Shown here is a 176-nucleotide RNA sequence from Oryza nivara, a member of the family "MIR807 microRNA precursor family".
It scores 138 bits against the family's covariance model.
Gene Ontology terms of the family: RISC complex and miRNA-mediated post-transcriptional gene silencing.
[Rfam]
RNA sequence: AAUCACACUAUCCAUGAAUGGAUUUACCCGUGAGAUGACGUGGUUGUUCCAUCUAGAAUGGGGACGUAGCAUCCUGUUAAUUUUGUCUGAUGGCUGGUAAUAUAAUGUCAUAUCCUCGUCCUAUGUGAAACAACCACAUCAUCUCGCGAGUGAAUCCAUUCAUCGAUAGUGUGAUU
Numbered sequence: 001a002a003u004c005a006c007a008c009u010a011u012c013c014a015u016g017a018a019u020g021g022a023u024u025u026a027c028c029c030g031u032g033a034g035a036u037g038a039c040g041u042g043g044u045u046g047u048u049c050c051a052u053c054u055a056g057a058a059u060g061g062g063g064a065c066g067u068a069g070c071a072u073c074c075u076g077u078u079a080a081u082u083u084u085g086u087c088u089g090a091u092g093g094c095u096g097g098u099a100a101u102a103u104a105a106u107g108u109c110a111u112a113u114c115c116u117c118g119u120c121c122u123a124u125g126u127g128a129a130a131c132a133a134c135c136a137c138a139u140c141a142u143c144u145c146g147c148g149a150g151u152g153a154a155u156c157c158a159u160u161c162a163u164c165g166a167u168a169g170u171g172u173g174a175u176u
Stems, first nucleotide, its partner, number of pairs: 001176007009168004014163002017160003021156007030147004035142004041136008051126002054123002058119001063114002069108004075102005086097002